[Rfam]
Nucleotides: 166
Base pairs, nucleotide, nucleotide: 001016002015004013005012035162036161040154041153042152043151046150048148049147050146064144065143066142067141073137074136075135078132079131080130081129082128083127085113086112087111088110091106092105093104094103
Number, partner (000 for none) and nucleotide at each position: 001016a002015u003000c004013c005012c006000g007000g008000c009000g010000a011000g012005g013004g014000c015002g016001u017000g018000u019000g020000g021000a022000g023000u024000g025000g026000a027000a028000g029000c030000c031000c032000g033000a034000g035162g036161c037000u038000u039000a040154c041153c042152g043151c044000a045000g046150c047000a048148c049147c050146g051000a052000a053000c054000g055000c056000a057000a058000g059000u060000g061000a062000a063000g064144c065143c066142u067141c068000g069000u070000a071000a072000g073137g074136c075135c076000a077000g078132c079131c080130u081129g082128u083127c084000u085113g086112g087111g088110u089000u090000a091106g092105c093104g094103u095000g096000c097000u098000c099000c100000g101000u102000a103094g104093c105092g106091c107000g108000a109000c110088g111087c112086c113085c114000g115000a116000u117000u118000u119000c120000c121000a122000a123000c124000c125000g126000u127083g128082g129081c130080a131079g132078g133000a134000g135075g136074g137073u138000a139000u140000u141067g142066a143065g144064g145000a146050c147049g148048g149000c150046g151043g152042c153041g154040g155000g156000a157000a158000g159000u160000u161036g162035c163000a164000c165000a166000u

This 166-nucleotide RNA sequence from Lignipirellula cremea belongs to the Rfam family "Group II catalytic intron D1-D4-3". Taxonomically the source falls in Lignipirellula (Bacteria, Planctomycetia, Pirellulales, Pirellulaceae). The match comes from Rfam's covariance-model search (53 bits).